[Rfam]
Background
The record is a 129-nucleotide RNA sequence from Scyliorhinus torazame, which matches "Small nucleolar RNA SNORA68" in Rfam. On this family, see Ganot et al., Genes Dev 1997: "The family of box ACA small nucleolar RNAs is defined by an evolutionarily conserved secondary structure and ubiquitous sequence elements essential for RNA accumulation". By type it is an H/ACA-box small nucleolar RNA. About the family: U68 is a member of the H/ACA class of small nucleolar RNAs (snoRNAs) which act as guides in the the modification of uridines to pseudouridines.
RNA sequence: AAUGCACACCAAACCCAAAGUCAUUAUAUUUUACAAUUUUAAUGCCUUUUUUUCUGUGCAGAAAACAAUUGUACCUUGUCGCCUUUUGAAACUUGUGUUUCACAAAGUGAAAUUUAAGGUACUACAUGA
Numbered sequence: 001a002a003u004g005c006a007c008a009c010c011a012a013a014c015c016c017a018a019a020g021u022c023a024u025u026a027u028a029u030u031u032u033a034c035a036a037u038u039u040u041a042a043u044g045c046c047u048u049u050u051u052u053u054c055u056g057u058g059c060a061g062a063a064a065a066c067a068a069u070u071g072u073a074c075c076u077u078g079u080c081g082c083c084u085u086u087u088g089a090a091a092c093u094u095g096u097g098u099u100u101c102a103c104a105a106a107g108u109g110a111a112a113u114u115u116a117a118g119g120u121a122c123u124a125c126a127u128g129a
Base pairs, nucleotide, nucleotide: 003060004059005058006057007056008055020046022044023043024042025041026040028037029036071122072121073120074119075118076117077116083107084106085105086104087102088101089100090099091098092097